Rfam assigns this 142-nucleotide RNA sequence from Aquamicrobium sp. LC103 to the family "Alphaproteobacterial sRNA BjrC1505". The pairing is the family consensus, mapped onto this sequence.

RNA sequence: GGCAGCGUUAACGCUUCAUUAAGCUUUAUGGGUGUUUACUGUGUUCAUCCAGUGAUCUGGAUUCUUACCGAGUGGCUGGGCCACUCCGUUUGACGCCUCCCUGUUUAACUCCUGAGAGCCGCUUUCCAGUGGCUCUUUUUUU
Numbered sequence: 001g002g003c004a005g006c007g008u009u010a011a012c013g014c015u016u017c018a019u020u021a022a023g024c025u026u027u028a029u030g031g032g033u034g035u036u037u038a039c040u041g042u043g044u045u046c047a048u049c050c051a052g053u054g055a056u057c058u059g060g061a062u063u064c065u066u067a068c069c070g071a072g073u074g075g076c077u078g079g080g081c082c083a084c085u086c087c088g089u090u091u092g093a094c095g096c097c098u099c100c101c102u103g104u105u106u107a108a109c110u111c112c113u114g115a116g117a118g119c120c121g122c123u124u125u126c127c128a129g130u131g132g133c134u135c136u137u138u139u140u141u142u
Stems, first nucleotide, its partner, number of pairs: 002042003005014002022033001024031002047062004070086006092105004114137010
The organism belongs to Aquamicrobium, within Bacteria.